[Rfam]
RNA: BsrG
Organism: Bacillus aerolatus
RNA sequence: AGGCAAUAGAAUAGGUUCUCAAGGGUGGUCGGCAUAGCUCCUCCAACUUGUAUGGAGGGAGGUGAUGCCGUAUGACAACGUUUGAAGCACUCAUGUUUGCAGUCGCUUUUGCAGGCUUGGUCGUGUCCAUCUUGUCAUUCCAUAAAAAAGACUAAAACCGCCCUUGAGUUUACCCAGCUCUGGCGGUUUUAGCACGUUAGACGCUGAUCCCCUUAAAGGGACCUGCUAUUGCAUGGCCGUUUCGAUGUUACCAGCAUCGAAA
Numbered sequence: 001a002g003g004c005a006a007u008a009g010a011a012u013a014g015g016u017u018c019u020c021a022a023g024g025g026u027g028g029u030c031g032g033c034a035u036a037g038c039u040c041c042u043c044c045a046a047c048u049u050g051u052a053u054g055g056a057g058g059g060a061g062g063u064g065a066u067g068c069c070g071u072a073u074g075a076c077a078a079c080g081u082u083u084g085a086a087g088c089a090c091u092c093a094u095g096u097u098u099g100c101a102g103u104c105g106c107u108u109u110u111g112c113a114g115g116c117u118u119g120g121u122c123g124u125g126u127c128c129a130u131c132u133u134g135u136c137a138u139u140c141c142a143u144a145a146a147a148a149a150g151a152c153u154a155a156a157a158c159c160g161c162c163c164u165u166g167a168g169u170u171u172a173c174c175c176a177g178c179u180c181u182g183g184c185g186g187u188u189u190u191a192g193c194a195c196g197u198u199a200g201a202c203g204c205u206g207a208u209c210c211c212c213u214u215a216a217a218g219g220g221a222c223c224u225g226c227u228a229u230u231g232c233a234u235g236g237c238c239g240u241u242u243c244g245a246u247g248u249u250a251c252c253a254g255c256a257u258c259g260a261a262a
Stems, first nucleotide, its partner, number of pairs: 001234001003232003007228003011224001016207002018168008027158001029156001035064002038061005074136005080130001087100003111128001113126001178200002208221004240262010